[Rfam]
RNA sequence: UAAUCCCUUGAUCGACUGAAGUGGAUUUGCGUCCGACACGGGCGCCUCAUCCACCCCGUGUCGCACCAGACCCGCUCGGUUGUCCCCCCGAGCGGGUC
Numbered sequence: 001u002a003a004u005c006c007c008u009u010g011a012u013c014g015a016c017u018g019a020a021g022u023g024g025a026u027u028u029g030c031g032u033c034c035g036a037c038a039c040g041g042g043c044g045c046c047u048c049a050u051c052c053a054c055c056c057c058g059u060g061u062c063g064c065a066c067c068a069g070a071c072c073c074g075c076u077c078g079g080u081u082g083u084c085c086c087c088c089c090g091a092g093c094g095g096g097u098c
Stems, first nucleotide, its partner, number of pairs: 001018002004015002023067002031064002035062005069098011

Rfam assigns this 98-nucleotide sequence from Tardiphaga robiniae to the family "Rhizobiales-2 RNA". A search with the family's covariance model found it, with a score of 60 bits. Taxonomically the source falls in Tardiphaga (Bacteria, Pseudomonadati, Pseudomonadota, Alphaproteobacteria). Pairs were carried over by alignment from the consensus structure, which is taken from published work.